This 91-nucleotide sequence from Caldimonas thermodepolymerans belongs to the Rfam family "SAH (S-adenosyl-L-homocysteine) riboswitch aptamer". The match comes from Rfam's covariance-model search (52 bits). The base pairs follow the family's consensus structure, which is taken from published work.
[Rfam]
RNA sequence: UUCUCCAAGGAGCGUUGCAGCGCCGCGCGGGACGCGAGAAACCGCCGGCGUCAGGCUUGGAUCCAUUCGUUUGCAACGACGCUCACCCCGC
Numbered sequence: 001u002u003c004u005c006c007a008a009g010g011a012g013c014g015u016u017g018c019a020g021c022g023c024c025g026c027g028c029g030g031g032a033c034g035c036g037a038g039a040a041a042c043c044g045c046c047g048g049c050g051u052c053a054g055g056c057u058u059g060g061a062u063c064c065a066u067u068c069g070u071u072u073g074c075a076a077c078g079a080c081g082c083u084c085a086c087c088c089c090g091c
Base pairs, nucleotide, nucleotide: 004061005060006059007058008057021050022049023048024047025046